[Rfam]
RNA sequence: GAGUCUAACAUGAACGCGAGUCGUCGGGUAGUACGAAACUCGGUGGCCAGAUGGAAGUGGGAAGGCCGGCUCGGUCCGGCUGAGGUCAGAUCCGUGCGUUUGCAGCGGCGGGGCACGAUCGGCCGAUCGCGCCCGUAGCGUCGGGGCGGUCGCGCAAGAGCGGUCAUGUUGGGACCCGAAAGAUGGUGAACUAUGCCUGGGAAGGUCGAAGCCAGAGGAAACUCUGGUGGAGGACCGUAGCGAUUCUGACGUGCAAAUCGAUCGUCAUAUUUGGGUAUAGGGCGAAAGAGCUAAUCGAACCAUCUAGUAGCUGGUU
Numbered sequence: 001g002a003g004u005c006u007a008a009c010a011u012g013a014a015c016g017c018g019a020g021u022c023g024u025c026g027g028g029u030a031g032u033a034c035g036a037a038a039c040u041c042g043g044u045g046g047c048c049a050g051a052u053g054g055a056a057g058u059g060g061g062a063a064g065g066c067c068g069g070c071u072c073g074g075u076c077c078g079g080c081u082g083a084g085g086u087c088a089g090a091u092c093c094g095u096g097c098g099u100u101u102g103c104a105g106c107g108g109c110g111g112g113g114c115a116c117g118a119u120c121g122g123c124c125g126a127u128c129g130c131g132c133c134c135g136u137a138g139c140g141u142c143g144g145g146g147c148g149g150u151c152g153c154g155c156a157a158g159a160g161c162g163g164u165c166a167u168g169u170u171g172g173g174a175c176c177c178g179a180a181a182g183a184u185g186g187u188g189a190a191c192u193a194u195g196c197c198u199g200g201g202a203a204g205g206u207c208g209a210a211g212c213c214a215g216a217g218g219a220a221a222c223u224c225u226g227g228u229g230g231a232g233g234a235c236c237g238u239a240g241c242g243a244u245u246c247u248g249a250c251g252u253g254c255a256a257a258u259c260g261a262u263c264g265u266c267a268u269a270u271u272u273g274g275g276u277a278u279a280g281g282g283c284g285a286a287a288g289a290g291c292u293a294a295u296c297g298a299a300c301c302a303u304c305u306a307g308u309a310g311c312u313g314g315u316u
Stems, first nucleotide, its partner, number of pairs: 005172009015162003020047003025042005051058002084120004091112005122155002124152006133143001175314002178311001182304006191280011202268001204236004211228007240265004245261002248259002281292003
Notes
Eukaryotic large subunit ribosomal RNA: a 316-nucleotide part of an RNA from Herdmania momus. NCBI's taxonomy places the organism under Eukaryota, Bilateria, Deuterostomia, Stolidobranchia, Herdmania. It is one of the family's seed sequences.